RNA sequence: GCCGGGAUAGCACAGUGGUAGUGCAGCUGAUUCGUAAUCAGCAGGUCGAGGGUUCGAAUCCCUUUCCCGGCU
Numbered sequence: 001g002c003c004g005g006g007a008u009a010g011c012a013c014a015g016u017g018g019u020a021g022u023g024c025a026g027c028u029g030a031u032u033c034g035u036a037a038u039c040a041g042c043a044g045g046u047c048g049a050g051g052g053u054u055c056g057a058a059u060c061c062c063u064u065u066c067c068c069g070g071c072u
Stems, first nucleotide, its partner, number of pairs: 001071007010024004026042005048064005
A member of the RNA family "tRNA" from Dissulfurispira thermophila, 72 nucleotides long. Taxonomically the source falls in Dissulfurispira (Bacteria, Pseudomonadati, Nitrospirota, Thermodesulfovibrionia). The family's RNA type in Rfam is transfer RNA.